Metazoan signal recognition particle RNA: a 285-nucleotide RNA sequence from Micromonas commoda. The match comes from Rfam's covariance-model search (143 bits). Gene Ontology terms of the family: SRP-dependent cotranslational protein targeting to membrane, signal sequence recognition and signal recognition particle, endoplasmic reticulum targeting.

[Rfam]
RNA sequence: GCUGGGUGGUUAACGACACCUGUAAUCCGAGUGGAGGCAGGGUGUUCGAAGGGCUUGGGUUCGCGAACGGACCUCAGUCGCAUACCGAUCAUGGCUCCGCUUCAAGCCAGUGGUCCGCAGCGGGUUCUUCCGGAGGGGAGAAGUCGUGGUGGAUAGUGAGACGGGAAUCGCAUCAGGCGGGAAACCGAGCAGUGCAAACCGUCCGCCGCUGGCAGUGAAGGGAUAGGCUGUGUGAGUGCUGCUGGGGAGCCUCCGCGCGUGAGUUCAUGUUCGACGUGCAUCCAU
Dot-bracket structure: ((((((((.(....).)))))....(((....)))))).((((((.((..((((.((..(.((((..((((.(((((..((((.(....(((((((((.(((((.(((((((((((((.((((.(((((((....))))))).)))).))))(...)..(((((.....((((....(((....)))....))))...))))).)))))))))..)))))))...))))))).).))))..))))).....)))))))).)..)..).))))..)).))))))..